[Rfam]
RNA: Small Cajal body specific RNA 8
RNA sequence: CGGGAGGGUGAUACCCAGGCAGGGCUCAGCAUUGACCUGCUUGUCACAAAUCCUCCCCACAUCAUACUUGCCUUUUGAUGACCGGGGCGAACUGAGAGAAAUCGCAACGGACAGAUACGGGGCAGACAUCA
Numbered sequence: 001c002g003g004g005a006g007g008g009u010g011a012u013a014c015c016c017a018g019g020c021a022g023g024g025c026u027c028a029g030c031a032u033u034g035a036c037c038u039g040c041u042u043g044u045c046a047c048a049a050a051u052c053c054u055c056c057c058c059a060c061a062u063c064a065u066a067c068u069u070g071c072c073u074u075u076u077g078a079u080g081a082c083c084g085g086g087g088c089g090a091a092c093u094g095a096g097a098g099a100a101a102u103c104g105c106a107a108c109g110g111a112c113a114g115a116u117a118c119g120g121g122g123c124a125g126a127c128a129u130c131a
Stems, first nucleotide, its partner, number of pairs: 002057006016043003022037002025034001068125007082110003087105004